[Rfam]
RNA: FMN riboswitch aptamer (RFN element)
Organism: Syntrophaceticus schinkii
RNA sequence: AAUGUCCUUCGGGGGAUGGUGAAACUCCACACCGGCGGUGAAAGCCCGCGAACCCGGCACUUGUUCUGUUUGUAAGUGUCCUGGUUGAUCCAGUGAAAAUCUGGAGCCGACAGUGAAAGUCUGGAAGGGAGAAGGGAUUC
Numbered sequence: 001a002a003u004g005u006c007c008u009u010c011g012g013g014g015g016a017u018g019g020u021g022a023a024a025c026u027c028c029a030c031a032c033c034g035g036c037g038g039u040g041a042a043a044g045c046c047c048g049c050g051a052a053c054c055c056g057g058c059a060c061u062u063g064u065u066c067u068g069u070u071u072g073u074a075a076g077u078g079u080c081c082u083g084g085u086u087g088a089u090c091c092a093g094u095g096a097a098a099a100u101c102u103g104g105a106g107c108c109g110a111c112a113g114u115g116a117a118a119g120u121c122u123g124g125a126a127g128g129g130a131g132a133a134g135g136g137a138u139u140c
Base pairs, nucleotide, nucleotide: 005136006135007134008133009132010131017029018028019027031120032119033109034108035049036048037047038046044107045106052085053084054083089105090104091103092102093101111123112122113121